RNA sequence: CAUAAACAACCAUUCACUUGAGGAUCGUUCGGCACGUACCUGCCGAUGAAGGGAAUUAUUA
Numbered sequence: 001c002a003u004a005a006a007c008a009a010c011c012a013u014u015c016a017c018u019u020g021a022g023g024a025u026c027g028u029u030c031g032g033c034a035c036g037u038a039c040c041u042g043c044c045g046a047u048g049a050a051g052g053g054a055a056u057u058a059u060u061a
Base pairs, nucleotide, nucleotide: 010053011052013050014049015048016047029046030045031044032043033042034041
Dot-bracket structure: .........((.((((............((((((......)))))))))).))........